[Rfam]
This 78-nucleotide RNA sequence from Mesocricetus auratus belongs to the Rfam family "Small nucleolar RNA SNORD115". The organism belongs to Mesocricetus, within Eukaryota. The match comes from Rfam's covariance-model search (43 bits). The family has 32 seed sequences and 3,387 matches in Rfam 15.1.

RNA sequence: GGGUCUAUGAUGAAAAACCAAAGGCAUGAAGUGAGGUGAUGACAAAAUAUCAUGCAGAGGUUGUGGCUGCUGAGGCCC
Numbered sequence: 001g002g003g004u005c006u007a008u009g010a011u012g013a014a015a016a017a018c019c020a021a022a023g024g025c026a027u028g029a030a031g032u033g034a035g036g037u038g039a040u041g042a043c044a045a046a047a048u049a050u051c052a053u054g055c056a057g058a059g060g061u062u063g064u065g066g067c068u069g070c071u072g073a074g075g076c077c078c
Base pairs, nucleotide, nucleotide: 001078002077003076004075005072008069009068